[Rfam]
RNA sequence: AGGGCGGUAUCAAUCGGAACUGCACCUUUCAAGGACACCUAGAAAAUUGUAUAUUUCAACAAGAUCUGCCUUGAUCUACAAACAGACAGGGACGGAGGA
Dot-bracket structure: ((((((((.((.....))))))).)))......................................((((((((.(((......)))))))).)))....
Numbered sequence: 001a002g003g004g005c006g007g008u009a010u011c012a013a014u015c016g017g018a019a020c021u022g023c024a025c026c027u028u029u030c031a032a033g034g035a036c037a038c039c040u041a042g043a044a045a046a047u048u049g050u051a052u053a054u055u056u057c058a059a060c061a062a063g064a065u066c067u068g069c070c071u072u073g074a075u076c077u078a079c080a081a082a083c084a085g086a087c088a089g090g091g092a093c094g095g096a097g098g099a
Stems, first nucleotide, its partner, number of pairs: 001027003004023005010018002066095003069091005075086003